A member of the RNA family "c-di-AMP riboswitch aptamer (ydaO/yuaA leader)" from Nonomuraea sp. WAC 01424, 152 nucleotides long.
RNA sequence: CGGAAAGACACGCCCAAUUCCCGCGAGGGAAGCCGGGGAACCAUCGGUGGCGAGCACCUCGCGCCACCACUUGGGGUGAAUCCGAUCAUCUCGGUAGGGCUGCUCCGGCCCGAACCCGUCAGCUAACCCGGCCGGCGUCGAUGAGAGGGGCU
Numbered sequence: 001c002g003g004a005a006a007g008a009c010a011c012g013c014c015c016a017a018u019u020c021c022c023g024c025g026a027g028g029g030a031a032g033c034c035g036g037g038g039a040a041c042c043a044u045c046g047g048u049g050g051c052g053a054g055c056a057c058c059u060c061g062c063g064c065c066a067c068c069a070c071u072u073g074g075g076g077u078g079a080a081u082c083c084g085a086u087c088a089u090c091u092c093g094g095u096a097g098g099g100c101u102g103c104u105c106c107g108g109c110c111c112g113a114a115c116c117c118g119u120c121a122g123c124u125a126a127c128c129c130g131g132c133c134g135g136c137g138u139c140g141a142u143g144a145g146a147g148g149g150g151c152u
Stems, first nucleotide, its partner, number of pairs: 011137004018031005032132006042073002074117003082094004097111004

Lineage of the source: Bacteria > Actinomycetota > Actinomycetes > Streptosporangiales > Nonomuraea. The match comes from Rfam's covariance-model search (93 bits).